RNA sequence: AGCUCGAUGAUUACAGCCCUUUUUGGGCAAUAUACGCUAUUCUGAGAAAUUUUUUAUUGGCUGAAAAUUUUCCGAUAAUGAGAGCU
Numbered sequence: 001a002g003c004u005c006g007a008u009g010a011u012u013a014c015a016g017c018c019c020u021u022u023u024u025g026g027g028c029a030a031u032a033u034a035c036g037c038u039a040u041u042c043u044g045a046g047a048a049a050u051u052u053u054u055u056a057u058u059g060g061c062u063g064a065a066a067a068u069u070u071u072c073c074g075a076u077a078a079u080g081a082g083a084g085c086u
Stems, first nucleotide, its partner, number of pairs: 001086005
RNA: Small nucleolar RNA U54